[Rfam]
Annotation
Bacterial large subunit ribosomal RNA: a 352-nucleotide part of an RNA from Methylophilales bacterium HTCC2181. The organism belongs to Nitrosomonadales, within Bacteria. It scores 2830 bits against the family's covariance model.

RNA sequence: UGAGAGAACUCUGGAGAAGGAACUCGGCAAAUUUGUACCGUAACUUCGGGAUAAGGUACGCCCUAUUAGGUUGAGACAAUUUACUUGUUAAGGCUGAACGGGUUGCAGUGAAAAGGUGGCUGCGACUGUUUAAUAAAAACACAGCACUGUGCUAACACGAAAGUGGAUGUAUACGGUGUGACGCCUGCCCGGUGCUCGAAGGUUAAAUGAUGGGGUGCAAGCUCUUGAUUGAAGCCCGAGUAAACGGCGGCCGUAACUAUAACGGUCCUAAGGUAGCGAAAUUCCUUGUCGGGUAAGUUCCGACCCGCACGAAUGGCGUAACGAUGGCCACACUGUCUCCUCUAGAGACUCA
Numbered sequence: 001u002g003a004g005a006g007a008a009c010u011c012u013g014g015a016g017a018a019g020g021a022a023c024u025c026g027g028c029a030a031a032u033u034u035g036u037a038c039c040g041u042a043a044c045u046u047c048g049g050g051a052u053a054a055g056g057u058a059c060g061c062c063c064u065a066u067u068a069g070g071u072u073g074a075g076a077c078a079a080u081u082u083a084c085u086u087g088u089u090a091a092g093g094c095u096g097a098a099c100g101g102g103u104u105g106c107a108g109u110g111a112a113a114a115g116g117u118g119g120c121u122g123c124g125a126c127u128g129u130u131u132a133a134u135a136a137a138a139a140c141a142c143a144g145c146a147c148u149g150u151g152c153u154a155a156c157a158c159g160a161a162a163g164u165g166g167a168u169g170u171a172u173a174c175g176g177u178g179u180g181a182c183g184c185c186u187g188c189c190c191g192g193u194g195c196u197c198g199a200a201g202g203u204u205a206a207a208u209g210a211u212g213g214g215g216u217g218c219a220a221g222c223u224c225u226u227g228a229u230u231g232a233a234g235c236c237c238g239a240g241u242a243a244a245c246g247g248c249g250g251c252c253g254u255a256a257c258u259a260u261a262a263c264g265g266u267c268c269u270a271a272g273g274u275a276g277c278g279a280a281a282u283u284c285c286u287u288g289u290c291g292g293g294u295a296a297g298u299u300c301c302g303a304c305c306c307g308c309a310c311g312a313a314u315g316g317c318g319u320a321a322c323g324a325u326g327g328c329c330a331c332a333c334u335g336u337c338u339c340c341u342c343u344a345g346a347g348a349c350u351c352a
Base pairs, nucleotide, nucleotide: 001352002351003350004349009347010346011345012344013343014342015341016340018338019337020336035059036058037057038056039055044049060103061102062101063100104108116331117330118329119328120327121326122325123323124322127141128140129139144179145178146177147176148175149174150173151172152169156165157164158163182318183317184316185315187248188247189246192245193244194241195240196239197238198237201236202235203234207230212225213224214223215222216221249267250266251265252264253263254262268272278305288304289303290302291301292300293299